[Rfam]
RNA: speF leader
Organism: Aureimonas jatrophae
RNA sequence: UCCCGGUCUCCAUAGCCGGGAAUACUGCAGAGGCACACCAUCCUUGCCUGAAGUGCGGCGGGUCUCCACCCUCCAAGCCAUGGCACACUUCUCUGUCUGAACGUCCGGUUCGCGCCGGCGUUCGAAUGGAGCAUGUCGCGUUUCGCGUCGACUCUUCGAGCGGGGU
Numbered sequence: 001u002c003c004c005g006g007u008c009u010c011c012a013u014a015g016c017c018g019g020g021a022a023u024a025c026u027g028c029a030g031a032g033g034c035a036c037a038c039c040a041u042c043c044u045u046g047c048c049u050g051a052a053g054u055g056c057g058g059c060g061g062g063u064c065u066c067c068a069c070c071c072u073c074c075a076a077g078c079c080a081u082g083g084c085a086c087a088c089u090u091c092u093c094u095g096u097c098u099g100a101a102c103g104u105c106c107g108g109u110u111c112g113c114g115c116c117g118g119c120g121u122u123c124g125a126a127u128g129g130a131g132c133a134u135g136u137c138g139c140g141u142u143u144c145g146c147g148u149c150g151a152c153u154c155u156u157c158g159a160g161c162g163g164g165g166u
Stems, first nucleotide, its partner, number of pairs: 001021007032048004056158002082123002128142002131139002